[Rfam]
RNA sequence: CUAUGUUUUUAUAACAAAACAUGGCGGAAGGAG
Numbered sequence: 001c002u003a004u005g006u007u008u009u010u011a012u013a014a015c016a017a018a019a020c021a022u023g024g025c026g027g028a029a030g031g032a033g
Stems, first nucleotide, its partner, number of pairs: 001024008
RNA: L31-Firmicutes ribosomal protein leader